[Rfam]
The record is a 113-nucleotide RNA sequence from Thermanaerosceptrum fracticalcis, which matches "TPP riboswitch aptamer (THI element)" in Rfam. Gene Ontology term of the family: thiamine pyrophosphate binding. NCBI's taxonomy places the organism under Bacteria, Bacillati, Clostridia, Eubacteriales, Thermanaerosceptrum. It scores 76 bits against the family's covariance model. About the family: Vitamin B(1) in its active form thiamin pyrophosphate (TPP) is an essential coenzyme that is synthesised by coupling of pyrimidine and thiazole moieties in bacteria.
RNA sequence: UUUAAACACUAGGGGAGCUGGAUAAGGCCGGCUGAGAUUAAGGACCGCUAAAUUCUUUAACCCUUUUACCUGAUCUGGAUAAUACCAGCGUAGGGAAGUGAUGUCAUACAUAU
Numbered sequence: 001u002u003u004a005a006a007c008a009c010u011a012g013g014g015g016a017g018c019u020g021g022a023u024a025a026g027g028c029c030g031g032c033u034g035a036g037a038u039u040a041a042g043g044a045c046c047g048c049u050a051a052a053u054u055c056u057u058u059a060a061c062c063c064u065u066u067u068a069c070c071u072g073a074u075c076u077g078g079a080u081a082a083u084a085c086c087a088g089c090g091u092a093g094g095g096a097a098g099u100g101a102u103g104u105c106a107u108a109c110a111u112a113u
Base pairs, nucleotide, nucleotide: 007100008099009098010097011064012063013062014061016058017032018031019030020029021028040057041056042055043054069094070093071092072091075088076087077086078085